[Rfam]
Source information
This 129-nucleotide RNA from Mikania micrantha belongs to the Rfam family "U11 spliceosomal RNA". The family's consensus secondary structure is taken from published work. Rfam 15.1 lists 2,595 matches to the family in 1,202 species. Lineage of the source: Eukaryota > Spermatophyta > Asteroideae > Eupatorieae > Mikania. A reference for the family is Schneider et al. (2004), "Identification of an evolutionarily divergent U11 small nuclear ribonucleoprotein particle in Drosophila", Proc Natl Acad Sci U S A.
RNA sequence: UAAAAGGGUCGGUUGGCUAAAUAUGCCACGCUCGCUUAUUGAAAGGUGAGUGCUGUAUGGCUAUCAAGACAUAUGGCCGACAUAAUUUGUGGGAAAUUAUAGGGUUGGCUCCCUUUGGCCGACCCUGCA
Numbered sequence: 001u002a003a004a005a006g007g008g009u010c011g012g013u014u015g016g017c018u019a020a021a022u023a024u025g026c027c028a029c030g031c032u033c034g035c036u037u038a039u040u041g042a043a044a045g046g047u048g049a050g051u052g053c054u055g056u057a058u059g060g061c062u063a064u065c066a067a068g069a070c071a072u073a074u075g076g077c078c079g080a081c082a083u084a085a086u087u088u089g090u091g092g093g094a095a096a097u098u099a100u101a102g103g104g105u106u107g108g109c110u111c112c113c114u115u116u117g118g119c120c121g122a123c124c125c126u127g128c129a
Stems, first nucleotide, its partner, number of pairs: 008081005014028004029052009053076007100127009112118002